Shown here is an 85-nucleotide RNA from Oceanisphaera arctica, a member of the family "c-di-GMP-I riboswitch aptamer". Rfam's curators write: GEMM was predicted in a large-scale screen for bacterial structured RNA regulatory elements. Genes associated with GEMM are involved in a diverse array of functions, including chemotaxis regulation, signal transduction, secretion and chitin. It scores 73 bits against the family's covariance model. The family's consensus secondary structure is taken from published work. Rfam links the family to the GO term cyclic-di-GMP binding. The source organism's lineage runs through Bacteria, Pseudomonadati, Gammaproteobacteria, Aeromonadales and Oceanisphaera.
RNA sequence: UUCAAUAAAAGGCAAAGCCGUUGAAAGAUGGUGACGCAAAGUUUCUGGCCUAAUGAGUUCGCUCUAUGGCAGCAGAGCUACAGAA
Numbered sequence: 001u002u003c004a005a006u007a008a009a010a011g012g013c014a015a016a017g018c019c020g021u022u023g024a025a026a027g028a029u030g031g032u033g034a035c036g037c038a039a040a041g042u043u044u045c046u047g048g049c050c051u052a053a054u055g056a057g058u059u060c061g062c063u064c065u066a067u068g069g070c071a072g073c074a075g076a077g078c079u080a081c082a083g084a085a
Stems, first nucleotide, its partner, number of pairs: 012037002017032006040079004045075003048070003055064003